[Rfam]
RNA sequence: AAAGUUCAUUGUUCGACACCAUGGAUCUCCAGGUGGGUCACGUUUAGAGAUACACCAACCUGGAGGACUCCAUGCUGUUGA
Numbered sequence: 001a002a003a004g005u006u007c008a009u010u011g012u013u014c015g016a017c018a019c020c021a022u023g024g025a026u027c028u029c030c031a032g033g034u035g036g037g038u039c040a041c042g043u044u045u046a047g048a049g050a051u052a053c054a055c056c057a058a059c060c061u062g063g064a065g066g067a068c069u070c071c072a073u074g075c076u077g078u079u080g081a
Stems, first nucleotide, its partner, number of pairs: 013081006020074006026066009036056003
RNA: mir-490 microRNA precursor family